Small nucleolar RNA SNORA28: a 112-nucleotide RNA from Cnephaeus nilssonii. A search with the family's covariance model found it, with a score of 86 bits. NCBI's taxonomy places the organism under Eukaryota, Deuterostomia, Vertebrata, Laurasiatheria, Cnephaeus.

RNA sequence: AACAAAAAUUAUUUUAAAAAACAAAAUAAAUUUGAGCUUGCUAUAGCAACAAAGUCUAACCUAUUCCGGUGCUCUCCUCUAUGAGACAAGCCGUUAUAGAGACUUAGACAGU
Dot-bracket structure: ..(......((((((.......)))))).......)...............((((((....(((..((((..((((......))))...))))..))).)))))).......
ACA28 is a member of the H/ACA class of snoRNA that guide the sites of modification of uridines to pseudouridines. It is annotated as an H/ACA-box small nucleolar RNA. Gene Ontology terms of the family: RNA processing and nucleolus. The base pairs follow the family's consensus structure, which was predicted with RNAfold.